[Rfam]
RNA: Nuclear RNase P
Organism: Mucor plumbeus
RNA sequence: AGAGGUGACAAGCUUAUGUAUACGGGCAAACAUACUAAAAGACUUUUGUUCUUUAAUAAUACCCGUGGGAAGGUCUGAGGAAAACCGCUAAAUGUCUUUGCUGGAUAACCUGUGAAAAUGGGAGCAGUGCUACCAGAAAAUAUAUCAUCUUGGGCCGUUAGUACCUUUGAAGGAUUCGCAAGAAUUUCUGAUGGGUUGGUUCAAGUAUGUUUACUGUAAUGGCCUGUGGGUGGUAACGCUAUGAAGUGCAAUACAUGAGACCGGUUAUACUGGUAACUCAAUUCAGACUACUCUGUUUCCUCU
Numbered sequence: 001a002g003a004g005g006u007g008a009c010a011a012g013c014u015u016a017u018g019u020a021u022a023c024g025g026g027c028a029a030a031c032a033u034a035c036u037a038a039a040a041g042a043c044u045u046u047u048g049u050u051c052u053u054u055a056a057u058a059a060u061a062c063c064c065g066u067g068g069g070a071a072g073g074u075c076u077g078a079g080g081a082a083a084a085c086c087g088c089u090a091a092a093u094g095u096c097u098u099u100g101c102u103g104g105a106u107a108a109c110c111u112g113u114g115a116a117a118a119u120g121g122g123a124g125c126a127g128u129g130c131u132a133c134c135a136g137a138a139a140a141u142a143u144a145u146c147a148u149c150u151u152g153g154g155c156c157g158u159u160a161g162u163a164c165c166u167u168u169g170a171a172g173g174a175u176u177c178g179c180a181a182g183a184a185u186u187u188c189u190g191a192u193g194g195g196u197u198g199g200u201u202c203a204a205g206u207a208u209g210u211u212u213a214c215u216g217u218a219a220u221g222g223c224c225u226g227u228g229g230g231u232g233g234u235a236a237c238g239c240u241a242u243g244a245a246g247u248g249c250a251a252u253a254c255a256u257g258a259g260a261c262c263g264g265u266u267a268u269a270c271u272g273g274u275a276a277c278u279c280a281a282u283u284c285a286g287a288c289u290a291c292u293c294u295g296u297u298u299c300c301u302c303u
Stems, first nucleotide, its partner, number of pairs: 001303004008296003013259007022066005037053002040050002075286005083231001085229002093107005109122005124227004129223003143213002260274005